The family of this 171-nucleotide RNA from Triticum urartu is "MIR2118 microRNA precursor family". The organism belongs to Triticum, within Eukaryota. The match comes from Rfam's covariance-model search (92 bits).
RNA sequence: GAUAGUAAGAGGAAGAGAAAGAGGGCAUCAGACAAGUGGGAAUGAUAACAUAGAGGAAAGCCUAACUUAUUGGUUCUUCACCUCUUGUCUUGAGGUGGGAAUGCAGUUUGGCACUUCACGAUGCCUCUCAUUCCUAUCGUUCUUAUGCACUCCUUUCUCUUCUUUUUUGUU
Numbered sequence: 001g002a003u004a005g006u007a008a009g010a011g012g013a014a015g016a017g018a019a020a021g022a023g024g025g026c027a028u029c030a031g032a033c034a035a036g037u038g039g040g041a042a043u044g045a046u047a048a049c050a051u052a053g054a055g056g057a058a059a060g061c062c063u064a065a066c067u068u069a070u071u072g073g074u075u076c077u078u079c080a081c082c083u084c085u086u087g088u089c090u091u092g093a094g095g096u097g098g099g100a101a102u103g104c105a106g107u108u109u110g111g112c113a114c115u116u117c118a119c120g121a122u123g124c125c126u127c128u129c130a131u132u133c134c135u136a137u138c139g140u141u142c143u144u145a146u147g148c149a150c151u152c153c154u155u156u157c158u159c160u161u162c163u164u165u166u167u168u169g170u171u
Stems, first nucleotide, its partner, number of pairs: 009162005015156003021152003026147003030143003037136009047126001049123003053119001056117001058116003